[Rfam]
RNA: RAGATH-26 RNA
RNA sequence: CCGCGCACUACGGCUGAAAAUGGGGUGACAAGCGCAUCGGCUUGUUUAAGGUCAAGAAUUGCGGUUAUAUACGAU
Numbered sequence: 001c002c003g004c005g006c007a008c009u010a011c012g013g014c015u016g017a018a019a020a021u022g023g024g025g026u027g028a029c030a031a032g033c034g035c036a037u038c039g040g041c042u043u044g045u046u047u048a049a050g051g052u053c054a055a056g057a058a059u060u061g062c063g064g065u066u067a068u069a070u071a072c073g074a075u
Stems, first nucleotide, its partner, number of pairs: 027046007